[Rfam]
RNA sequence: UGUCCCUGUCCUGAGUAGAGUGGCAUCUAACUGGUGGUGUCCAUCUCAUAUCAGCUGGGGGAAAAAAAAAUCAAUCCCUUAUUUAUCCCACUUAGGCUUUUGGCCUGUGUCUGGUUCAUGCCAAAAAUUUAUGG
Numbered sequence: 001u002g003u004c005c006c007u008g009u010c011c012u013g014a015g016u017a018g019a020g021u022g023g024c025a026u027c028u029a030a031c032u033g034g035u036g037g038u039g040u041c042c043a044u045c046u047c048a049u050a051u052c053a054g055c056u057g058g059g060g061g062a063a064a065a066a067a068a069a070a071u072c073a074a075u076c077c078c079u080u081a082u083u084u085a086u087c088c089c090a091c092u093u094a095g096g097c098u099u100u101u102g103g104c105c106u107g108u109g110u111c112u113g114g115u116u117c118a119u120g121c122c123a124a125a126a127a128u129u130u131a132u133g134g
Stems, first nucleotide, its partner, number of pairs: 001063001003061006011054004018047003022041006081128004095122003101118003105114003
RNA: Small nucleolar RNA SNORA48
Organism: Erinaceus europaeus